[Rfam]
RNA sequence: UAAUGUGAAUAGAAAAAAGGAGCCCUGUGCAAUCAGGACUCCUUUUAGAACCGUUAGACGGUAGCAAAUCUAAAGUUUAAAUAACC
Number, nucleotide and partner (000 for none) at each position: 001u000002a000003a000004u000005g000006u000007g000008a000009a000010u000011a000012g000013a000014a000015a000016a000017a000018a000019g000020g000021a000022g000023c000024c037025c036026u035027g034028u000029g000030c000031a000032a000033u000034c027035a026036g025037g024038a000039c000040u000041c000042c000043u000044u000045u000046u000047a000048g000049a000050a062051c061052c060053g059054u058055u000056a000057g000058a054059c053060g052061g051062u050063a000064g000065c000066a000067a000068a000069u000070c000071u000072a000073a000074a000075g000076u000077u000078u000079a000080a000081a000082u000083a000084a000085c000086c000
Rfam assigns this 86-nucleotide sequence from Weissella paramesenteroides to the family "RNA anti-toxin A".
By type it is an antitoxin RNA.
Gene Ontology terms of the family: mRNA binding and negative regulation of translation.
For this family Rfam cites "Abundance of type I toxin-antitoxin systems in bacteria: searches for new candidates and discovery of novel families" (Fozo et al., Nucleic Acids Res, 2010).